[Rfam]
RNA sequence: AGAGCAUGCCUAACAGGCAUCCUCUCCUAAAGACUUUUUCAGGCCGACGUUCGCGUCGGCCUUUUUUUAUGCAUUCC
Numbered sequence: 001a002g003a004g005c006a007u008g009c010c011u012a013a014c015a016g017g018c019a020u021c022c023u024c025u026c027c028u029a030a031a032g033a034c035u036u037u038u039u040c041a042g043g044c045c046g047a048c049g050u051u052c053g054c055g056u057c058g059g060c061c062u063u064u065u066u067u068u069a070u071g072c073a074u075u076c077c
Base pairs, nucleotide, nucleotide: 008018009017010016011015041062042061043060044059045058046057047056048055049054
Shown here is a 77-nucleotide RNA from Sphingorhabdus pulchriflava, a member of the family "Makes More Granules Regulator RNA (mmgR)". The pairing is the family consensus, mapped onto this sequence. On this family, see Ceizel Borella et al., FEMS Microbiol Lett 2016: "Expression of the Sinorhizobium meliloti small RNA gene mmgR is controlled by the nitrogen source". The organism belongs to Sphingorhabdus, within Bacteria. The family's RNA type in Rfam is small RNA.